[Rfam]
RNA: c-di-GMP-I riboswitch aptamer
RNA sequence: GGUAUUCGAGGGCAAACCUGCCGAAAGGCAGCGACGCAAAGCCUCCGGCCUGUCGCGUGCAAACGCUACGGUAGCGGGGUCGCCAGU
Numbered sequence: 001g002g003u004a005u006u007c008g009a010g011g012g013c014a015a016a017c018c019u020g021c022c023g024a025a026a027g028g029c030a031g032c033g034a035c036g037c038a039a040a041g042c043c044u045c046c047g048g049c050c051u052g053u054c055g056c057g058u059g060c061a062a063a064c065g066c067u068a069c070g071g072u073a074g075c076g077g078g079g080u081c082g083c084c085a086g087u
Stems, first nucleotide, its partner, number of pairs: 012037002018031005041080003045077003048072003055066004